[Rfam]
RNA sequence: UGGCUAUAGAAUAACUUAUUAUGUGGCCACUUUGAGUUACGAUAGCUGUUAUGUUAAUUUACGAGACUACAGUAACUCUUUACUAAGUGAUUUACUAUAACAUUAUGGUAAAUACCACCGUGAGUUGUAGUAACACAUGUAUCGUAAAUGCAUAUUCAUGUUAUCAUAAAUUUAUACAAACAUUAUCGUAAAUCAAGAUGGCUAUAGAAUAAGUUAUUCUAUGACCA
Numbered sequence: 001u002g003g004c005u006a007u008a009g010a011a012u013a014a015c016u017u018a019u020u021a022u023g024u025g026g027c028c029a030c031u032u033u034g035a036g037u038u039a040c041g042a043u044a045g046c047u048g049u050u051a052u053g054u055u056a057a058u059u060u061a062c063g064a065g066a067c068u069a070c071a072g073u074a075a076c077u078c079u080u081u082a083c084u085a086a087g088u089g090a091u092u093u094a095c096u097a098u099a100a101c102a103u104u105a106u107g108g109u110a111a112a113u114a115c116c117a118c119c120g121u122g123a124g125u126u127g128u129a130g131u132a133a134c135a136c137a138u139g140u141a142u143c144g145u146a147a148a149u150g151c152a153u154a155u156u157c158a159u160g161u162u163a164u165c166a167u168a169a170a171u172u173u174a175u176a177c178a179a180a181c182a183u184u185a186u187c188g189u190a191a192a193u194c195a196a197g198a199u200g201g202c203u204a205u206a207g208a209a210u211a212a213g214u215u216a217u218u219c220u221a222u223g224a225c226c227a
Stems, first nucleotide, its partner, number of pairs: 001227003005223016022206008031197003037191009047182001050178001052176003056172006065165002069161003072157001074155001079148005087142003092137001093132009103122001108116001
Dot-bracket structure: (((.((((((((((((((((.((((((((.(((...(((((((((.(..(.(((.((((((...((..((((.(....(((((...(((..((((((((((.(....(.......).....).)))))))))....)..))).)))))......).).)))..)).)))))).))).)...))))))))))...))).)))))))).)))))))))))))))).)))